[Rfam]
RNA: Small nucleolar RNA SNORA43
RNA sequence: GGGGUACUGGACCUGCUAGCACCAUGGGCACAGCCACUCCUCUGUUCCUGUGACUUUGGGGCAAAGAGCAACUGGCUAUUUCUACACUCAGUGUUCGGGGAUCAGUGAGCGCUGAGAAUGGGUUAUAGCCUGACAUUC
Number, nucleotide and partner (000 for none) at each position: 001g000002g000003g000004g062005u061006a000007c059008u058009g057010g056011a000012c000013c000014u000015g000016c000017u000018a000019g000020c000021a000022c000023c000024a051025u050026g049027g048028g000029c000030a000031c000032a000033g000034c000035c000036a000037c000038u000039c000040c000041u000042c000043u000044g000045u000046u000047c000048c027049u026050g025051u024052g000053a000054c000055u000056u010057u009058g008059g007060g000061g005062c004063a000064a000065a000066g000067a000068g000069c000070a000071a000072c000073u000074g130075g129076c128077u000078a000079u000080u000081u000082c121083u120084a119085c000086a000087c116088u115089c000090a000091g000092u111093g110094u109095u108096c107097g106098g000099g000100g000101a000102u000103c000104a000105g000106u097107g096108a095109g094110c093111g092112c000113u000114g000115a088116g087117a000118a000119u084120g083121g082122g000123u000124u000125a000126u000127a000128g076129c075130c074131u000132g000133a000134c000135a000136u000137u000138c000